A member of the RNA family "FMN riboswitch aptamer (RFN element)" from Pelotomaculum isophthalicicum, 132 nucleotides long. Lineage of the source: Bacteria > Bacillota > Eubacteriales > Pelotomaculum > Pelotomaculum isophthalicicum. Rfam's curators write: The RFN element is a highly conserved domain that is found frequently in the 5'-untranslated regions of prokaryotic mRNAs that encode for flavin mononucleotide (FMN) biosynthesis and transport proteins. The base pairs follow the family's consensus structure, which is taken from published work.
RNA sequence: CAAUACCUUCAGGGACGGGUGCGAUUCCGUACCGGCGGUGUGGCGUGAUGCGCCGAGCCCGCGAACCCUUACAGGGUUGAUCCGGUGAGAAGCCGGGGCCGACAGUAAAAGUCUGGAUGGGAGAAGGUUUAU
Numbered sequence: 001c002a003a004u005a006c007c008u009u010c011a012g013g014g015a016c017g018g019g020u021g022c023g024a025u026u027c028c029g030u031a032c033c034g035g036c037g038g039u040g041u042g043g044c045g046u047g048a049u050g051c052g053c054c055g056a057g058c059c060c061g062c063g064a065a066c067c068c069u070u071a072c073a074g075g076g077u078u079g080a081u082c083c084g085g086u087g088a089g090a091a092g093c094c095g096g097g098g099c100c101g102a103c104a105g106u107a108a109a110a111g112u113c114u115g116g117a118u119g120g121g122a123g124a125a126g127g128u129u130u131a132u
Stems, first nucleotide, its partner, number of pairs: 003130001005128006018028002031112002033101002035062004057099002065077003081097005103115003